[Rfam]
RNA: ZMP/ZTP riboswitch aptamer (pfl RNA motif)
RNA sequence: AACGCGCGUCGUGACUGGCGCCUCGGGUGGAAGUGACCACCGGGAAGCGGCGCGCUCCUGACGCCGCGCGCCUGGGCACCGAAU
Numbered sequence: 001a002a003c004g005c006g007c008g009u010c011g012u013g014a015c016u017g018g019c020g021c022c023u024c025g026g027g028u029g030g031a032a033g034u035g036a037c038c039a040c041c042g043g044g045a046a047g048c049g050g051c052g053c054g055c056u057c058c059u060g061a062c063g064c065c066g067c068g069c070g071c072c073u074g075g076g077c078a079c080c081g082a083a084u
Base pairs, nucleotide, nucleotide: 004055005054006053007052008051009050010049011048012047015044016043017072018071019070020069021068027040028039029038030037063077064076065075